[Rfam]
RNA sequence: AAAUUUUUAUAAAAAGUCUUGACAAACAGAUGCUGAUGUGCUAUAAUAAUCAAGUGCUCUAUGAAAAACAUAUCGCGGGAUGGAGCAGUUCGG
Numbered sequence: 001a002a003a004u005u006u007u008u009a010u011a012a013a014a015a016g017u018c019u020u021g022a023c024a025a026a027c028a029g030a031u032g033c034u035g036a037u038g039u040g041c042u043a044u045a046a047u048a049a050u051c052a053a054g055u056g057c058u059c060u061a062u063g064a065a066a067a068a069c070a071u072a073u074c075g076c077g078g079g080a081u082g083g084a085g086c087a088g089u090u091c092g093g
Base pairs, nucleotide, nucleotide: 004038006036007035010021011020012019023032024031058068

A member of the RNA family "Staphylococcus sRNA 774" from Ruminococcaceae bacterium FB2012, 93 nucleotides long.
Rfam's curators write: Northern blot transcript confirmed in exponentially growing and stationary cells in three cultivation media.
By type it is a small RNA.
Pairs were carried over by alignment from the consensus structure, which was predicted with R-scape.
Lineage of the source: Bacteria > Bacillati > Bacillota > Eubacteriales > Oscillospiraceae.